The record is an 85-nucleotide RNA from Carnegiea gigantea, which matches "Small nucleolar RNA Z157/R69/R10" in Rfam. It is annotated as a C/D-box small nucleolar RNA. Its family is annotated with RNA processing and nucleolus in the Gene Ontology. On this family, see Chen et al., Nucleic Acids Res 2003: "The high diversity of snoRNAs in plants: identification and comparative study of 120 snoRNA genes from Oryza sativa". Lineage of the source: Eukaryota > Pentapetalae > Caryophyllales > Cactaceae > Carnegiea. The base pairs follow the family's consensus structure, which was predicted with PFOLD.
RNA sequence: GCAUUGUGCAGUGAUGAAGCUUAGUGUGGACUAGAGUUUCUGAUCUUCUGGUUGAAGACAAACCCUUGGCUGUCUGAGCACAUGC
Numbered sequence: 001g002c003a004u005u006g007u008g009c010a011g012u013g014a015u016g017a018a019g020c021u022u023a024g025u026g027u028g029g030a031c032u033a034g035a036g037u038u039u040c041u042g043a044u045c046u047u048c049u050g051g052u053u054g055a056a057g058a059c060a061a062a063c064c065c066u067u068g069g070c071u072g073u074c075u076g077a078g079c080a081c082a083u084g085c
Stems, first nucleotide, its partner, number of pairs: 001085003005082005037057004044050001